[Rfam]
RNA sequence: CUCACCGUCGGACGAUGCGCGACGCGAGGGUUGGGGAACCCGUUGACCCGAGAGGCAUCGAGGCCGGCAAGGGUCCUAGGGAGCCCGCGCCGGUCGUUUCGACGAAGGAG
Numbered sequence: 001c002u003c004a005c006c007g008u009c010g011g012a013c014g015a016u017g018c019g020c021g022a023c024g025c026g027a028g029g030g031u032u033g034g035g036g037a038a039c040c041c042g043u044u045g046a047c048c049c050g051a052g053a054g055g056c057a058u059c060g061a062g063g064c065c066g067g068c069a070a071g072g073g074u075c076c077u078a079g080g081g082a083g084c085c086c087g088c089g090c091c092g093g094u095c096g097u098u099u100c101g102a103c104g105a106a107g108g109a110g
Stems, first nucleotide, its partner, number of pairs: 006104007013060004018054001020052001024048001028041005062095006071086004